[Rfam]
RNA sequence: AAGUGUUAUGAUGAUUGGCUAAAUAUGUUCAACUGCUCUGAAGUGUGAUUGACAAGUGCCUUUCUGAACACAU
Numbered sequence: 001a002a003g004u005g006u007u008a009u010g011a012u013g014a015u016u017g018g019c020u021a022a023a024u025a026u027g028u029u030c031a032a033c034u035g036c037u038c039u040g041a042a043g044u045g046u047g048a049u050u051g052a053c054a055a056g057u058g059c060c061u062u063u064c065u066g067a068a069c070a071c072a073u
Base pairs, nucleotide, nucleotide: 003071004070005069006068

Source information:
The family of this 73-nucleotide RNA sequence from Pleuronectes platessa is "Small nucleolar RNA Z40". Rfam 15.1 lists 615 matches to the family in 541 species. NCBI's taxonomy places the organism under Eukaryota, Bilateria, Chordata, Clupeocephala, Pleuronectes. The base pairs follow the family's consensus structure, which was predicted with PFOLD. Rfam links the family to the GO terms nucleolus and RNA processing.